[Rfam]
RNA sequence: UUAGUGAGAACCAUUUGAAUAAAUUAGUUUAGUGAUUCAUAUGGCUCUCACCA
Number, nucleotide and partner (000 for none) at each position: 001u000002u000003a000004g051005u050006g049007a048008g047009a046010a000011c044012c043013a042014u041015u000016u039017g038018a037019a036020u035021a000022a033023a000024u000025u000026a000027g000028u000029u000030u000031a000032g000033u022034g000035a020036u019037u018038c017039a016040u000041a014042u013043g012044g011045c000046u009047c008048u007049c006050a005051c004052c000053a000
A member of the RNA family "Plastid-ccsA-ndhD-2 3UTR RNA" from Nyssa sinensis, 53 nucleotides long. Rfam describes the family as follows. Plastid ccsA-ndhD-2 is a non-coding RNA (ncRNA) recognised in plastids. It was found in the three prime untranslated region (3UTR) of ccsA and ndhD genes, its 3UTR location suggests a role in transcript maturation. It scores 53 bits against the family's covariance model. The literature on the family includes a 2023 paper in Plant Commun by Richter et al., "Retrograde signaling in plants: A critical review focusing on the GUN pathway and beyond".